[Rfam]
RNA: DUF2693-FD RNA
RNA sequence: UCCUUGUAAACGGAUUGAACGGCAACGCAUAGCGAGAAUGCGACAAGGA
Numbered sequence: 001u002c003c004u005u006g007u008a009a010a011c012g013g014a015u016u017g018a019a020c021g022g023c024a025a026c027g028c029a030u031a032g033c034g035a036g037a038a039u040g041c042g043a044c045a046a047g048g049a
Stems, first nucleotide, its partner, number of pairs: 001049007011021002017033001023036001026042005